The family of this 266-nucleotide sequence from Psychrilyobacter sp. S5 is "Bacterial large signal recognition particle RNA". Gene Ontology terms of the family: SRP-dependent cotranslational protein targeting to membrane, signal sequence recognition and signal recognition particle, plasma membrane targeting. The match comes from Rfam's covariance-model search (161 bits). The organism belongs to Psychrilyobacter, within Bacteria. About the family: The signal recognition particle (SRP) is a universally conserved ribonucleoprotein involved in the co-translational targeting of proteins to membranes. Rfam classes the family as a non-coding RNA gene.
RNA sequence: UCGUACUAACCGGGGAGCCAGCGGUGCCUUGUAAUCUACAAUCCGCUUUAGUAGAGGUGAUGUCGACCUGAGGAUCGGUCUGUCAUAGCAGGUCCUGUUAGAAAAUGUUGAGAAUAGAGUCCUAUACGGCGAAAUGCCAGUGAACCGUGUCAGAUCCGGAAGGAAGCAGCACUAAGUUGGUUAUUUUGGGUGUUAUAGGGUAGCUUUGUUUGAGUUUUUUAAUAGGGUGCCGUGUGGUUGGAGUGUUUUCGAAGGUCGAUGUACGG
Numbered sequence: 001u002c003g004u005a006c007u008a009a010c011c012g013g014g015g016a017g018c019c020a021g022c023g024g025u026g027c028c029u030u031g032u033a034a035u036c037u038a039c040a041a042u043c044c045g046c047u048u049u050a051g052u053a054g055a056g057g058u059g060a061u062g063u064c065g066a067c068c069u070g071a072g073g074a075u076c077g078g079u080c081u082g083u084c085a086u087a088g089c090a091g092g093u094c095c096u097g098u099u100a101g102a103a104a105a106u107g108u109u110g111a112g113a114a115u116a117g118a119g120u121c122c123u124a125u126a127c128g129g130c131g132a133a134a135u136g137c138c139a140g141u142g143a144a145c146c147g148u149g150u151c152a153g154a155u156c157c158g159g160a161a162g163g164a165a166g167c168a169g170c171a172c173u174a175a176g177u178u179g180g181u182u183a184u185u186u187u188g189g190g191u192g193u194u195a196u197a198g199g200g201u202a203g204c205u206u207u208g209u210u211u212g213a214g215u216u217u218u219u220u221a222a223u224a225g226g227g228u229g230c231c232g233u234g235u236g237g238u239u240g241g242a243g244u245g246u247u248u249u250c251g252a253a254g255g256u257c258g259a260u261g262u263a264c265g266g
Base pairs, nucleotide, nucleotide: 001266002265003264004263005262006261009058010057011056012030013029014028015027017025018024019023035055036054037053038052039051063259064258065257066256067255068254069253072250073249074248079241080240082238083237084236085235086234087233091231092230094226095225096224097223098222099221102219103218104216105215106214112211113210114209115208116207117206118205119204120203121199122198123197124196125195126194127190130188131187132186133185134184136181137180138179139178140177141176147172148171149170150169155164156163157162